[Rfam]
ASpks TB sRNA: a 75-nucleotide RNA sequence from Nocardiopsis composta. It scores 62 bits against the family's covariance model. The base pairs follow the family's consensus structure, which is taken from published work.
RNA sequence: CUUCAGCGAGCCCAGCCGCAGCGGUUCGGCGUCCCCUCGCCCGCGCCCGUAGGUGGCGAGCAGCGCCUGGGCCUC
Numbered sequence: 001c002u003u004c005a006g007c008g009a010g011c012c013c014a015g016c017c018g019c020a021g022c023g024g025u026u027c028g029g030c031g032u033c034c035c036c037u038c039g040c041c042c043g044c045g046c047c048c049g050u051a052g053g054u055g056g057c058g059a060g061c062a063g064c065g066c067c068u069g070g071g072c073c074u075c
Stems, first nucleotide, its partner, number of pairs: 014026004032070002038065002047056003